The family of this 107-nucleotide RNA sequence from Triticum aestivum is "MIR6450 microRNA precursor family". NCBI's taxonomy places the organism under Eukaryota, Spermatophyta, Liliopsida, Triticeae, Triticum. Pairs were carried over by alignment from the consensus structure, which was predicted with RNAalifold. The match comes from Rfam's covariance-model search (71 bits). Gene Ontology terms of the family: RISC complex and miRNA-mediated post-transcriptional gene silencing.

[Rfam]
RNA sequence: AGCUCCCGCUUGCGCAGGGUCCAGGGAAGGGUCCGACCACUUCGGGUCUAUACCUUAUAGACCCAAAGUGGUCGGACCCUUUCCUGGACCCUGCGCAAGCGGGAGCU
Numbered sequence: 001a002g003c004u005c006c007c008g009c010u011u012g013c014g015c016a017g018g019g020u021c022c023a024g025g026g027a028a029g030g031g032u033c034c035g036a037c038c039a040c041u042u043c044g045g046g047u048c049u050a051u052a053c054c055u056u057a058u059a060g061a062c063c064c065a066a067a068g069u070g071g072u073c074g075g076a077c078c079c080u081u082u083c084c085u086g087g088a089c090c091c092u093g094c095g096c097a098a099g100c101g102g103g104a105g106c107u
Stems, first nucleotide, its partner, number of pairs: 001107009013095012029079009044064007